[Rfam]
RNA: Pseudomonas sRNA P26
RNA sequence: ACCCUUCCGGUUGCAGCCUGAGAAAUCAGGCUGAUGGCUGGUGACUUUUUAGUCACCAGCCU
Number, nucleotide and partner (000 for none) at each position: 001a000002c000003c000004c000005u000006u000007c000008c000009g000010g000011u000012u000013g000014c033015a032016g031017c030018c029019u000020g000021a000022g027023a000024a000025a000026u000027c022028a000029g018030g017031c016032u015033g014034a000035u000036g061037g060038c059039u058040g057041g056042u055043g054044a053045c052046u000047u000048u000049u000050u000051a000052g045053u044054c043055a042056c041057c040058a039059g038060c037061c036062u000